Record summary:
This 82-nucleotide sequence from Coffea canephora belongs to the Rfam family "Small nucleolar RNA R21". Lineage of the source: Eukaryota > Spermatophyta > eudicotyledons > lamiids > Coffea.
[Rfam]
RNA sequence: CAUUCCUAUGAAGAUUGCAUCUGUAUUUUAACGUUAAAAGUAGACUGAAAGUCAACUGAUGACAAAUCAAUUCUGAGGGAUG
Numbered sequence: 001c002a003u004u005c006c007u008a009u010g011a012a013g014a015u016u017g018c019a020u021c022u023g024u025a026u027u028u029u030a031a032c033g034u035u036a037a038a039a040g041u042a043g044a045c046u047g048a049a050a051g052u053c054a055a056c057u058g059a060u061g062a063c064a065a066a067u068c069a070a071u072u073c074u075g076a077g078g079g080a081u082g
Base pairs, nucleotide, nucleotide: 001082002081003080004079005078006077
Dot-bracket structure: ((((((......................................................................))))))